[Rfam]
RNA: Group II catalytic intron D1-D4-5
Organism: Ureibacillus massiliensis
RNA sequence: UUUAACUUUACAACGGAGGAUAGGAAUGAAGAAACCAUGUUUUCUGAAACUAUCCCGUCAAUACUCCUGCAUGCGUUAUGACUGACAGGCUAUAGGGUUUGAAGUACAGGUGGAUUCGGCAGAACGAAGGCUUUAGCCACUCCUUUAGAGAAGGUAUGCCAACGGAUAUGCCGCACGUCAUAGCA
Number, nucleotide and partner (000 for none) at each position: 001u000002u000003u000004a000005a000006c000007u000008u000009u000010a000011c000012a000013a000014c000015g000016g000017a000018g055019g054020a053021u052022a051023g050024g000025a000026a000027u000028g000029a000030a000031g045032a000033a043034a042035c000036c000037a000038u000039g000040u000041u000042u034043u033044c000045u031046g000047a000048a000049a000050c023051u022052a021053u020054c019055c018056c177057g176058u175059c000060a000061a000062u000063a000064c000065u000066c110067c109068u108069g107070c101071a100072u000073g098074c097075g000076u095077u094078a093079u092080g091081a000082c089083u088084g000085a000086c000087a000088g083089g082090c000091u080092a079093u078094a077095g076096g000097g074098u073099u000100u071101g070102a000103a000104g000105u000106a000107c069108a068109g067110g066111u000112g000113g000114a000115u000116u000117c173118g172119g171120c170121a169122g000123a000124a000125c164126g163127a000128a000129g160130g159131c154132u153133u152134u000135a000136g000137c000138c150139a000140c000141u000142c000143c000144u000145u000146u000147a000148g000149a000150g138151a000152a133153g132154g131155u000156a000157u000158g000159c130160c129161a000162a000163c126164g125165g000166a000167u000168a000169u121170g120171c119172c118173g117174c000175a058176c057177g056178u000179c000180a000181u000182a000183g000184c000185a000